[Rfam]
RNA: mir-2 microRNA precursor family
RNA sequence: UCGCUCAUCAUCUGGUUGUGAAAUGUGAAUUUAUAUCAUAUCACAGCCAGCUUUGAUGAGCGCAA
Numbered sequence: 001u002c003g004c005u006c007a008u009c010a011u012c013u014g015g016u017u018g019u020g021a022a023a024u025g026u027g028a029a030u031u032u033a034u035a036u037c038a039u040a041u042c043a044c045a046g047c048c049a050g051c052u053u054u055g056a057u058g059a060g061c062g063c064a065a
Base pairs, nucleotide, nucleotide: 005059006058007057008056009055010054013049014048015047016046017045018044019043020042021041024040025039026038